This 80-nucleotide RNA sequence from Equus caballus belongs to the Rfam family "mir-181 microRNA precursor family". The literature on the family includes a 2001 paper in Cell by Ambros, "microRNAs: tiny regulators with great potential".
[Rfam]
RNA sequence: GGACUCCAAGGAACAUUCAACGCUGUCGGUGAGUUUGGGAUUUGAAAAAACCACCGACCGUUGACUGUACCUUGGGGUCC
Numbered sequence: 001g002g003a004c005u006c007c008a009a010g011g012a013a014c015a016u017u018c019a020a021c022g023c024u025g026u027c028g029g030u031g032a033g034u035u036u037g038g039g040a041u042u043u044g045a046a047a048a049a050a051c052c053a054c055c056g057a058c059c060g061u062u063g064a065c066u067g068u069a070c071c072u073u074g075g076g077g078u079c080c
Base pairs, nucleotide, nucleotide: 001080002079003078004077005076006075007074008073014067015066017064018063019062020061021060022059025058026057027056028055029054030053031052033051034050035049036048

The family's consensus secondary structure was predicted with PFOLD. The sequence is in the family's curated seed alignment.